RNA: MIR1120/MIR1122 microRNA precursor family
Organism: Triticum aestivum
RNA sequence: AUACUCCCUUUGUCCCAUAAUAUAAGAACGUUUUUUACACUAGUGUCAAAAACGUUCUUAUAUUAUGGGACGGAGGGAGUAA
Numbered sequence: 001a002u003a004c005u006c007c008c009u010u011u012g013u014c015c016c017a018u019a020a021u022a023u024a025a026g027a028a029c030g031u032u033u034u035u036u037a038c039a040c041u042a043g044u045g046u047c048a049a050a051a052a053c054g055u056u057c058u059u060a061u062a063u064u065a066u067g068g069g070a071c072g073g074a075g076g077g078a079g080u081a082a
Stems, first nucleotide, its partner, number of pairs: 003080003007076005013070005019064017037046003